[Rfam]
RNA sequence: AGAGGGUCGAUGAUGAUGCAUUUCACUUUGUUAUCCUUGCACUUUGAUACAUAUAUGAAGAAAACUAUGGGGAAAGUUAUUCUGAGAGCUUU
Numbered sequence: 001a002g003a004g005g006g007u008c009g010a011u012g013a014u015g016a017u018g019c020a021u022u023u024c025a026c027u028u029u030g031u032u033a034u035c036c037u038u039g040c041a042c043u044u045u046g047a048u049a050c051a052u053a054u055a056u057g058a059a060g061a062a063a064a065c066u067a068u069g070g071g072g073a074a075a076g077u078u079a080u081u082c083u084g085a086g087a088g089c090u091u092u
Base pairs, nucleotide, nucleotide: 002092003091004090005089007087008086

Shown here is a 92-nucleotide sequence from Helianthus annuus, a member of the family "Small nucleolar RNA snoR26".
A search with the family's covariance model found it, with a score of 60 bits.
Rfam 15.1 lists 611 matches to the family in 220 species.